[Rfam]
RNA sequence: CGCGUAUUUUGCGAAGGCGGAGUUCGACCGCCUCUGGAAAAAAUUACGCCCCUGGUGGAUACCUUGCGCAGCAAACACGGGGUCGGAUCGGUAUGCCACGAGCUGGAUAUCGCCCCG
Numbered sequence: 001c002g003c004g005u006a007u008u009u010u011g012c013g014a015a016g017g018c019g020g021a022g023u024u025c026g027a028c029c030g031c032c033u034c035u036g037g038a039a040a041a042a043a044u045u046a047c048g049c050c051c052c053u054g055g056u057g058g059a060u061a062c063c064u065u066g067c068g069c070a071g072c073a074a075a076c077a078c079g080g081g082g083u084c085g086g087a088u089c090g091g092u093a094u095g096c097c098a099c100g101a102g103c104u105g106g107a108u109a110u111c112g113c114c115c116c117g
Stems, first nucleotide, its partner, number of pairs: 016032005078117005089112002092109003096105001
Source information: Shown here is a 117-nucleotide RNA from Serratia symbiotica, a member of the family "ALIL pseudoknot". Lineage of the source: Bacteria > Pseudomonadota > Yersiniaceae > Serratia > Serratia symbiotica. A search with the family's covariance model found it, with a score of 95 bits. By type it is a cis-regulatory element. Gene Ontology term of the family: positive regulation of translational frameshifting.